[Rfam]
RNA sequence: UCCGAUGCCGGUGAUGGAGUUCACCGUGUAACCGCCCGUGGGGCCGAUGACUCCUGUUCAUAU
Numbered sequence: 001u002c003c004g005a006u007g008c009c010g011g012u013g014a015u016g017g018a019g020u021u022c023a024c025c026g027u028g029u030a031a032c033c034g035c036c037c038g039u040g041g042g043g044c045c046g047a048u049g050a051c052u053c054c055u056g057u058u059c060a061u062a063u
Stems, first nucleotide, its partner, number of pairs: 010025004016054006034044004
Rfam assigns this 63-nucleotide sequence from Acidiphilium cryptum to the family "Fluoride riboswitch aptamer (crcB RNA motif)". It is one of the family's seed sequences. The base pairs follow the family's consensus structure, which is taken from published work.